[Rfam]
RNA sequence: AUUGCCGUCUUACCAGGCAUGUUUAGAUGUGGUUAAUGUGUCUAAUACUGUCUGGUAAAGCCGUCCAU
Number, nucleotide and partner (000 for none) at each position: 001a000002u067003u000004g065005c000006c063007g062008u000009c060010u058011u057012a056013c055014c054015a053016g052017g051018c050019a049020u000021g000022u000023u045024u044025a043026g042027a041028u000029g000030u000031g000032g000033u000034u000035a000036a000037u000038g000039u000040g000041u027042c026043u025044a024045a023046u000047a000048c000049u019050g018051u017052c016053u015054g014055g013056u012057a011058a010059a000060g009061c000062c007063g006064u000065c004066c000067a002068u000
A member of the RNA family "mir-8/mir-141/mir-200 microRNA precursor family" from Chanos chanos, 68 nucleotides long. Its Rfam clan is "mir-8 microRNA precursor clan". Rfam 15.1 lists 2,669 matches to the family in 883 species. The match comes from Rfam's covariance-model search (58 bits). The base pairs follow the family's consensus structure, which was predicted with RNAalifold.